[Rfam]
Annotation
This 123-nucleotide RNA from Shewanella loihica belongs to the Rfam family "Phenylalanine leader peptide". Rfam classes the family as a cis-regulatory leader. On this family, see Gurvich et al., Nucleic Acids Res 2010: "Two groups of phenylalanine biosynthetic operon leader peptides genes: a high level of apparently incidental frameshifting in decoding Escherichia coli pheL". A search with the family's covariance model found it, with a score of 80 bits.

Nucleotides: 123
Base pairs, nucleotide, nucleotide: 021088022087023086024085025084026083027082028081029080030079031078033076034075036073037072038071039070042056044054045053058067059066060065093117094116095115096114097113098112099111100110101109102108
Number, partner (000 for none) and nucleotide at each position: 001000g002000a003000a004000a005000a006000u007000g008000a009000a010000c011000a012000c013000c014000c015000a016000a017000g018000c019000u020000u021088u022087u023086u024085u025084u026083a027082c028081u029080u030079u031078c032000u033076u034075u035000u036073u037072u038071a039070u040000u041000c042056c043000a044054c045053c046000c047000u048000u049000c050000u051000a052000g053045g054044g055000a056042g057000g058067c059066g060065g061000a062000a063000u064000u065060u066059c067058g068000g069000u070039g071038u072037a073036a074000a075034a076033a077000c078031g079030a080029a081028a082027g083026u084025a085024a086023a087022a088021a089000u090000u091000c092000c093117a094116a095115g096114g097113c098112c099111u100110c101109c102108c103000a104000u105000u106000a107000u108102g109101g110100g111099g112098g113097g114096c115095u116094u117093u118000u119000u120000u121000a122000u123000u